[Rfam]
RNA sequence: CUGCGGUGAUGACAUUCUUAGGACACCUUUGGAUUUCACAAUGAAAAGAAAAACGUAACUUCUGAGCAGC
Numbered sequence: 001c002u003g004c005g006g007u008g009a010u011g012a013c014a015u016u017c018u019u020a021g022g023a024c025a026c027c028u029u030u031g032g033a034u035u036u037c038a039c040a041a042u043g044a045a046a047a048g049a050a051a052a053a054c055g056u057a058a059c060u061u062c063u064g065a066g067c068a069g070c
Base pairs, nucleotide, nucleotide: 001069002068003067004066
Shown here is a 70-nucleotide sequence from Todus mexicanus, a member of the family "Small nucleolar RNA SNORD58". Rfam describes the family as follows. snoRNA U58 is found in introns 1, 3 and 6 of the ribosomal protein RPL17 gene in humans. Lineage of the source: Eukaryota > Metazoa > Teleostomi > Coraciiformes > Todus. Rfam links the family to the GO terms RNA processing and nucleolus. The match comes from Rfam's covariance-model search (72 bits). Rfam 15.1 lists 2,484 matches to the family in 680 species. Its Rfam clan is "SNORD58 clan".